[Rfam]
RNA sequence: GGCCGAAUAAGGCGUUCACGCCGCGUCCGGCAAUCAACGCUUGAUGCGACGCUUGCGCGUCUUAUCAGGCC
Numbered sequence: 001g002g003c004c005g006a007a008u009a010a011g012g013c014g015u016u017c018a019c020g021c022c023g024c025g026u027c028c029g030g031c032a033a034u035c036a037a038c039g040c041u042u043g044a045u046g047c048g049a050c051g052c053u054u055g056c057g058c059g060u061c062u063u064a065u066c067a068g069g070c071c
Stems, first nucleotide, its partner, number of pairs: 002031004007026002011022004039070008048061005

This 71-nucleotide RNA from Escherichia coli belongs to the Rfam family "Nucleoid-associated noncoding RNA 4 (CssrE)".
About the family: In E. coli small RNA transcribed from repeated extragenic palindromic element (REP325) called nucleoid-associated ncRNA 4 (nRNA4) collaborates HU protein in condensing the DNA. The secondary structure but not the sequence of the RNA is important in nucleoid condensation.
Gene Ontology terms of the family: protein binding, bacterial nucleoid DNA packaging and bacterial nucleoid.
The source organism's lineage runs through Bacteria, Gammaproteobacteria, Enterobacterales, Escherichia coli and Escherichia coli O157:H7.
It is annotated as a small RNA.